[Rfam]
RNA sequence: AAGUACACUGAGUGGCCAGAUUAUUAUGAUCUCUAACUGCAUAAUAAUCUGGCCACUCAGUGUACUU
Numbered sequence: 001a002a003g004u005a006c007a008c009u010g011a012g013u014g015g016c017c018a019g020a021u022u023a024u025u026a027u028g029a030u031c032u033c034u035a036a037c038u039g040c041a042u043a044a045u046a047a048u049c050u051g052g053c054c055a056c057u058c059a060g061u062g063u064a065c066u067u
Stems, first nucleotide, its partner, number of pairs: 004064014019049010
This 67-nucleotide RNA from Pipistrellus kuhlii belongs to the Rfam family "mir-9256 microRNA precursor family". The organism belongs to Pipistrellus, within Eukaryota. Gene Ontology terms of the family: miRNA-mediated post-transcriptional gene silencing and RISC complex. It scores 84 bits against the family's covariance model. Rfam 15.1 lists 31,772 matches to the family in 5 species. The base pairs follow the family's consensus structure, which was predicted with RNAalifold.